A member of the RNA family "U4 spliceosomal RNA" from Chaetomium globosum, 138 nucleotides long.
The sequence is in the family's curated seed alignment.
Rfam describes the family as follows. U4 small nuclear RNA (U4 snRNA) is a component of the major U2-dependent spliceosome.
The base pairs follow the family's consensus structure, which is taken from published work.
For this family Rfam cites "The spliceosomal snRNAs of Caenorhabditis elegans" (Thomas et al., Nucleic Acids Res, 1990).
Its Rfam clan is "U4 clan".
[Rfam]
RNA sequence: AUCCAAGUGCAGGGGUUUUACGUGUAUCAGUGAGGAUUCGUCCGAGAUCACGUUUUUGCUAGUUGAAAACUACAUACCUGACCGCUCCUGUUGGGUUUCGACCUGACAGGGAAUUUUUGGAACCCUUCCUCUCGCAGG
Numbered sequence: 001a002u003c004c005a006a007g008u009g010c011a012g013g014g015g016u017u018u019u020a021c022g023u024g025u026a027u028c029a030g031u032g033a034g035g036a037u038u039c040g041u042c043c044g045a046g047a048u049c050a051c052g053u054u055u056u057u058g059c060u061a062g063u064u065g066a067a068a069a070c071u072a073c074a075u076a077c078c079u080g081a082c083c084g085c086u087c088c089u090g091u092u093g094g095g096u097u098u099c100g101a102c103c104u105g106a107c108a109g110g111g112a113a114u115u116u117u118u119g120g121a122a123c124c125c126u127u128c129c130u131c132u133c134g135c136a137g138g
Stems, first nucleotide, its partner, number of pairs: 020053005026048003034043003086111011